[Rfam]
RNA sequence: GGGGAACAUCUAUGAGGGAGAUGUUACCUGAUACACACUUCCUACAUAAAACUCUGAACUGUUUGCUAGUAGUUCUGCGAAUCAGUUCUACAAGGCCCAUAUCACUGUCCACUUGA
Number, nucleotide and partner (000 for none) at each position: 001g029002g028003g027004g000005a025006a024007c023008a022009u021010c020011u019012a000013u000014g000015a000016g000017g000018g000019a011020g010021a009022u008023g007024u006025u005026a000027c003028c002029u001030g000031a000032u000033a000034c000035a000036c000037a000038c000039u000040u000041c000042c000043u000044a000045c000046a000047u000048a000049a000050a000051a000052c000053u000054c107055u000056g000057a000058a000059c000060u000061g000062u000063u000064u000065g000066c094067u093068a000069g091070u090071a089072g088073u000074u000075c085076u084077g000078c000079g000080a000081a000082u000083c000084a076085g075086u000087u000088c072089u071090a070091c069092a000093a067094g066095g000096c000097c000098c000099a000100u000101a000102u000103c000104a000105c000106u000107g054108u000109c000110c000111a000112c000113u000114u000115g000116a000